[Rfam]
RNA sequence: AUACUCUGACAGUUGCAUAGUUCAACAGACUGAAUCAAGAGAUGUAUACCAUCUGUCUGAUAUAUCU
Numbered sequence: 001a002u003a004c005u006c007u008g009a010c011a012g013u014u015g016c017a018u019a020g021u022u023c024a025a026c027a028g029a030c031u032g033a034a035u036c037a038a039g040a041g042a043u044g045u046a047u048a049c050c051a052u053c054u055g056u057c058u059g060a061u062a063u064a065u066c067u
Base pairs, nucleotide, nucleotide: 001065002064003063007037008036009035013028014027015026040054041053042052043051044050
Dot-bracket structure: (((...(((...(((..........)))......)))..(((((.....)))))........)))..
Small nucleolar RNA SNORD77: a 67-nucleotide RNA from Callithrix jacchus.
Pairs were carried over by alignment from the consensus structure, which was predicted with RNAalifold.
Its family is annotated with nucleolus and RNA processing in the Gene Ontology.
Rfam describes the family as follows. U77 belongs to the C/D family of snoRNAs. It is predicted to guide 2'O-ribose methylation of large 28S rRNA subunit at position A1521.
The family's RNA type in Rfam is C/D-box small nucleolar RNA.